Description:
The family of this 102-nucleotide sequence is "Purine riboswitch aptamer".
RNA sequence: UAAAUUCAUAUGCGUUUCACUCAUAUAAUCGCGGGGAUAAGGCCCGAAAGUUUCUACCAGAUUGCCGUUAACAAUCUGACUAUGAGUGGGUAAUGGGAAAAU
Numbered sequence: 001u002a003a004a005u006u007c008a009u010a011u012g013c014g015u016u017u018c019a020c021u022c023a024u025a026u027a028a029u030c031g032c033g034g035g036g037a038u039a040a041g042g043c044c045c046g047a048a049a050g051u052u053u054c055u056a057c058c059a060g061a062u063u064g065c066c067g068u069u070a071a072c073a074a075u076c077u078g079a080c081u082a083u084g085a086g087u088g089g090g091u092a093a094u095g096g097g098a099a100a101a102u
Stems, first nucleotide, its partner, number of pairs: 018088008029049001032046004058078007

The match comes from Rfam's covariance-model search (85 bits).